A member of the RNA family "mir-57 microRNA precursor family" from Toxocara canis, 83 nucleotides long. The family's consensus secondary structure was predicted with RNAalifold. Its family is annotated with miRNA-mediated post-transcriptional gene silencing and RISC complex in the Gene Ontology. Lineage of the source: Eukaryota > Chromadorea > Ascaridoidea > Toxocaridae > Toxocara.

[Rfam]
RNA sequence: GUUGUUUCAUAUACCCUGUAGUACCGAGCUGUGUUUGAGUGAUUAUGCAUACACAGUCGGUUACCGGGUGUGUGGCGCUUCUC
Numbered sequence: 001g002u003u004g005u006u007u008c009a010u011a012u013a014c015c016c017u018g019u020a021g022u023a024c025c026g027a028g029c030u031g032u033g034u035u036u037g038a039g040u041g042a043u044u045a046u047g048c049a050u051a052c053a054c055a056g057u058c059g060g061u062u063a064c065c066g067g068g069u070g071u072g073u074g075g076c077g078c079u080u081c082u083c
Stems, first nucleotide, its partner, number of pairs: 012070004018064004024060002028058001030056001032055003036051001039048002
A reference for the family is Kozomara et al. (2019), "miRBase: from microRNA sequences to function", Nucleic Acids Res.